[Rfam]
RNA sequence: AAUUUUGGGUAAUCGCGGUUUAUAUAUAAUAAGCUGAGGAAAGUCCAUGCUCGCACAAGCUGCGAUGCUUGUAGUGUUCGUGCUUAGCGAAAAAAUAAGCUAAGGUAUCUUCUUAGGAAGUUAACGGCAGAAAAACGUGCUAAGGAAUUUAUUCUAUGUGCUAGUAUUCUUGAAAGUGCCACAGAGACGAAGCAAUUGGAGAAAUCCCAUUGGUGGAACGCGGUAAACCCCUCGAGCGAGCAACCCAAACUAUGGUAGGGGCAUUUCUUCCAAGGAAUUGAACAGAGGAAGAGAGCAACAUUGUUGCAGAUAGAUGAUUACCAACAGCUAAAGAUUCACCUGAAGCUUUAGCUGUUACAGAACAUGGCUUACAGAA
Numbered sequence: 001a002a003u004u005u006u007g008g009g010u011a012a013u014c015g016c017g018g019u020u021u022a023u024a025u026a027u028a029a030u031a032a033g034c035u036g037a038g039g040a041a042a043g044u045c046c047a048u049g050c051u052c053g054c055a056c057a058a059g060c061u062g063c064g065a066u067g068c069u070u071g072u073a074g075u076g077u078u079c080g081u082g083c084u085u086a087g088c089g090a091a092a093a094a095a096u097a098a099g100c101u102a103a104g105g106u107a108u109c110u111u112c113u114u115a116g117g118a119a120g121u122u123a124a125c126g127g128c129a130g131a132a133a134a135a136c137g138u139g140c141u142a143a144g145g146a147a148u149u150u151a152u153u154c155u156a157u158g159u160g161c162u163a164g165u166a167u168u169c170u171u172g173a174a175a176g177u178g179c180c181a182c183a184g185a186g187a188c189g190a191a192g193c194a195a196u197u198g199g200a201g202a203a204a205u206c207c208c209a210u211u212g213g214u215g216g217a218a219c220g221c222g223g224u225a226a227a228c229c230c231c232u233c234g235a236g237c238g239a240g241c242a243a244c245c246c247a248a249a250c251u252a253u254g255g256u257a258g259g260g261g262c263a264u265u266u267c268u269u270c271c272a273a274g275g276a277a278u279u280g281a282a283c284a285g286a287g288g289a290a291g292a293g294a295g296c297a298a299c300a301u302u303g304u305u306g307c308a309g310a311u312a313g314a315u316g317a318u319u320a321c322c323a324a325c326a327g328c329u330a331a332a333g334a335u336u337c338a339c340c341u342g343a344a345g346c347u348u349u350a351g352c353u354g355u356u357a358c359a360g361a362a363c364a365u366g367g368c369u370u371a372c373a374g375a376a
Stems, first nucleotide, its partner, number of pairs: 004376003007372001008322007016036006041370003045367005050240005055072006078235003082231001083104006105125001106123002109120003126230002129170004137161004144155003176228002178224003193212004198207003244260003264294007295307005324355009
Record summary: The family of this 376-nucleotide RNA from Isobaculum melis is "Bacterial RNase P class B". The family's RNA type in Rfam is ribozyme. Ribonuclease P (RNase P) is a ubiquitous endoribonuclease, found in archaea, bacteria and eukarya as well as chloroplasts and mitochondria. Its best characterised activity is the generation of mature 5'-ends of tRNAs by cleaving the 5'-leader elements of precursor-tRNAs. Cellular RNase Ps are ribonucleoproteins. The family's consensus secondary structure is taken from published work. A search with the family's covariance model found it, with a score of 347 bits. Its Rfam clan is "RNaseP clan".